RNA sequence: UUAUGGUCGUAUGACUGGCGGAAGUGGAUGUAACCACAGGGAAUACGACUUUUAAUAGCCGACCGCCUGGGCAAAUAAA
Numbered sequence: 001u002u003a004u005g006g007u008c009g010u011a012u013g014a015c016u017g018g019c020g021g022a023a024g025u026g027g028a029u030g031u032a033a034c035c036a037c038a039g040g041g042a043a044u045a046c047g048a049c050u051u052u053u054a055a056u057a058g059c060c061g062a063c064c065g066c067c068u069g070g071g072c073a074a075a076u077a078a079a
Base pairs, nucleotide, nucleotide: 003052005050006049007048008047009046010045011044012043015040016039017067018066019065020064021063024037025036026035027034056074058072059071060070
Dot-bracket structure: ..(.((((((((..(([[[[[..((((......)))).))..)))))))).)...(.(((..]]]]]..))).).....
ZMP/ZTP riboswitch aptamer (pfl RNA motif): a 79-nucleotide RNA from Clostridium sp. cel8. For this family Rfam cites "Recognition of the bacterial alarmone ZMP through long-distance association of two RNA subdomains" (Jones and Ferre-D'Amare, Nat Struct Mol Biol, 2015). Pairs were carried over by alignment from the consensus structure, which is taken from published work. The source organism's lineage runs through Bacteria, Bacillati, Clostridia, Clostridiaceae and Clostridium.